RNA sequence: GCUCCGUGAUGAAAUGUGACCGUAGAUAGGAAGUGCCGUAUGACACUUUAUUCCGUCUUUGCUAA
Numbered sequence: 001g002c003u004c005c006g007u008g009a010u011g012a013a014a015u016g017u018g019a020c021c022g023u024a025g026a027u028a029g030g031a032a033g034u035g036c037c038g039u040a041u042g043a044c045a046c047u048u049u050a051u052u053c054c055g056u057c058u059u060u061g062c063u064a065a
Base pairs, nucleotide, nucleotide: 014059030049031048032047033046034045035044
Dot-bracket structure: .............(...............((((((........)))))).........)......